[Rfam]
RNA sequence: UUUUAAAAAGAAUUUAUUUAUUUUUACGGUUAAAAACUGGCUUGAUUGACAAAAUAACCAGAUAAUUACACUGGUGUGAAACAUGUACCUCAUUCUGACAUACAAUAAUCAGUUUUUAAUUGUAGAAAUGGAUGAAAAUUUUAAUA
Numbered sequence: 001u002u003u004u005a006a007a008a009a010g011a012a013u014u015u016a017u018u019u020a021u022u023u024u025u026a027c028g029g030u031u032a033a034a035a036a037c038u039g040g041c042u043u044g045a046u047u048g049a050c051a052a053a054a055u056a057a058c059c060a061g062a063u064a065a066u067u068a069c070a071c072u073g074g075u076g077u078g079a080a081a082c083a084u085g086u087a088c089c090u091c092a093u094u095c096u097g098a099c100a101u102a103c104a105a106u107a108a109u110c111a112g113u114u115u116u117u118a119a120u121u122g123u124a125g126a127a128a129u130g131g132a133u134g135a136a137a138a139u140u141u142u143a144a145u146a
Stems, first nucleotide, its partner, number of pairs: 003144006013136006020129009030119006
The record is a 146-nucleotide sequence from Gossypium lobatum, which matches "MIR7502 microRNA precursor family" in Rfam.
Gene Ontology terms of the family: RISC complex and miRNA-mediated post-transcriptional gene silencing.
The family has 6 seed sequences and 74,505 matches in Rfam 15.1.